[Rfam]
Background:
MIR159 microRNA precursor family: a 192-nucleotide sequence from Cuscuta europaea. The source organism's lineage runs through Eukaryota, Euphyllophyta, Gunneridae, Cuscuteae and Cuscuta subgen. Cuscuta. On this family, see Jones-Rhoades and Bartel, Mol Cell 2004: "Computational identification of plant microRNAs and their targets, including a stress-induced miRNA". Gene Ontology terms of the family: miRNA-mediated post-transcriptional gene silencing and RISC complex.
RNA sequence: UAAAGUCGAAGGGAGCUGCUUUCGGUCCAAUUAGGGUAGAGGAAUGGUUUGAAUUAGUUGCCGACUCAUUCAUUCAAACACACUAGGAGAUGGAGCUAGCCAACUAGUGUGAAUGUGUGAAUGAUGCGGGAGACUCAUUUCACCCUUCAUCUCUCCUUAAUUGGACUGAAGGGAGCUCCCUUUCUAUACUUA
Numbered sequence: 001u002a003a004a005g006u007c008g009a010a011g012g013g014a015g016c017u018g019c020u021u022u023c024g025g026u027c028c029a030a031u032u033a034g035g036g037u038a039g040a041g042g043a044a045u046g047g048u049u050u051g052a053a054u055u056a057g058u059u060g061c062c063g064a065c066u067c068a069u070u071c072a073u074u075c076a077a078a079c080a081c082a083c084u085a086g087g088a089g090a091u092g093g094a095g096c097u098a099g100c101c102a103a104c105u106a107g108u109g110u111g112a113a114u115g116u117g118u119g120a121a122u123g124a125u126g127c128g129g130g131a132g133a134c135u136c137a138u139u140u141c142a143c144c145c146u147u148c149a150u151c152u153c154u155c156c157u158u159a160a161u162u163g164g165a166c167u168g169a170a171g172g173g174a175g176c177u178c179c180c181u182u183u184c185u186a187u188a189c190u191u192a
Stems, first nucleotide, its partner, number of pairs: 013178005019172002023168007036155001058132002061129003067123004075115001